The family of this 141-nucleotide RNA sequence from Rhabdornis inornatus is "Small nucleolar RNA SNORA12". It scores 51 bits against the family's covariance model.
RNA sequence: UAUUGUGGUGGUUGCUGUGUGUGGCAGGUCUGUAAAUAUAUCAGAGCUGUAGCAGAACUACCACAGAGAUAAGAAAGGAGGUGGCUGUGCUGAGAACUUACAAGCUUUGAGUUUUCAGCUCUCUGUCCACCUCCUACAGGA
Numbered sequence: 001u002a003u004u005g006u007g008g009u010g011g012u013u014g015c016u017g018u019g020u021g022u023g024g025c026a027g028g029u030c031u032g033u034a035a036a037u038a039u040a041u042c043a044g045a046g047c048u049g050u051a052g053c054a055g056a057a058c059u060a061c062c063a064c065a066g067a068g069a070u071a072a073g074a075a076a077g078g079a080g081g082u083g084g085c086u087g088u089g090c091u092g093a094g095a096a097c098u099u100a101c102a103a104g105c106u107u108u109g110a111g112u113u114u115u116c117a118g119c120u121c122u123c124u125g126u127c128c129a130c131c132u133c134c135u136a137c138a139g140g141a
Stems, first nucleotide, its partner, number of pairs: 005064007024050002027047001029045004077134006100126003104122001
Rfam links the family to the GO terms nucleolus and RNA processing. By type it is an H/ACA-box small nucleolar RNA. The family's consensus secondary structure was predicted with RNAalifold. The organism belongs to Rhabdornis, within Eukaryota.